[Rfam]
RNA sequence: CACAAAGAAAGACCUCUUCCCGGUUCUUCCCAGAGUCAGGAAAAGCUGGGUUGAGAGGGCGGAAAAAAAAAGAA
Numbered sequence: 001c002a003c004a005a006a007g008a009a010a011g012a013c014c015u016c017u018u019c020c021c022g023g024u025u026c027u028u029c030c031c032a033g034a035g036u037c038a039g040g041a042a043a044a045g046c047u048g049g050g051u052u053g054a055g056a057g058g059g060c061g062g063a064a065a066a067a068a069a070a071a072g073a074a
Base pairs, nucleotide, nucleotide: 014055015054016053019050020049021048022047023046027042028041029040030039
RNA: mir-320 microRNA precursor family